[Rfam]
mir-344 microRNA precursor family: a 70-nucleotide sequence from Peromyscus maniculatus.
NCBI's taxonomy places the organism under Eukaryota, Eumetazoa, Deuterostomia, Glires, Peromyscus maniculatus.
The base pairs follow the family's consensus structure, which was predicted with RNAalifold.
The literature on the family includes a 2010 paper in Genes Dev by Chiang et al., "Mammalian microRNAs: experimental evaluation of novel and previously annotated genes".

RNA sequence: UUACCAGUCAGGCUUUGGCCAUAUUCCAGGACACAGUGGGUCCUGGGUGUGGCUAAAGCCCGACUAUACA
Number, nucleotide and partner (000 for none) at each position: 001u000002u000003a000004c000005c000006a000007g064008u063009c062010a000011g060012g059013c058014u057015u000016u055017g054018g053019c052020c051021a050022u049023a048024u000025u000026c040027c039028a000029g037030g000031a000032c000033a000034c000035a000036g000037u029038g000039g027040g026041u000042c000043c000044u000045g000046g000047g000048u023049g022050u021051g020052g019053c018054u017055a016056a000057a014058g013059c012060c011061c000062g009063a008064c007065u000066a000067u000068a000069c000070a000